Notes:
A member of the RNA family "Plastid-rpl20 3UTR RNA" from Digitaria exilis, 80 nucleotides long. It is annotated as a cis-regulatory element.

[Rfam]
RNA sequence: ACCAAAUUCCCAGAGAGGGAACUCCAGGAGGAUACAAUAAAUCAAUAUUAAGUGGUACGAAUCAACGAGCAUGUUGAAAU
Dot-bracket structure: ......((((..(((......)))..))))................................((((......))))....
Numbered sequence: 001a002c003c004a005a006a007u008u009c010c011c012a013g014a015g016a017g018g019g020a021a022c023u024c025c026a027g028g029a030g031g032a033u034a035c036a037a038u039a040a041a042u043c044a045a046u047a048u049u050a051a052g053u054g055g056u057a058c059g060a061a062u063c064a065a066c067g068a069g070c071a072u073g074u075u076g077a078a079a080u
Stems, first nucleotide, its partner, number of pairs: 007030004013024003063076004
About the family: Plastid rpl20 is a non-coding RNA (ncRNA) recognised in plastids. It was found in the three prime untranslated region (3UTR) of rpl20 gene, it presence in the 3UTR region sugest a role in transcript maduration. Lineage of the source: Eukaryota > Streptophytina > Tracheophyta > Paniceae > Digitaria.